[Rfam]
RNA sequence: AAGACAUGAUGCUAUACAAUACUUGCUACUUUGGACGGUUGCCCUAGCGGCGCCAAUGACAGUCCUUUACCACCGAGAUCUCUGAUCUU
Numbered sequence: 001a002a003g004a005c006a007u008g009a010u011g012c013u014a015u016a017c018a019a020u021a022c023u024u025g026c027u028a029c030u031u032u033g034g035a036c037g038g039u040u041g042c043c044c045u046a047g048c049g050g051c052g053c054c055a056a057u058g059a060c061a062g063u064c065c066u067u068u069a070c071c072a073c074c075g076a077g078a079u080c081u082c083u084g085a086u087c088u089u
Stems, first nucleotide, its partner, number of pairs: 001089004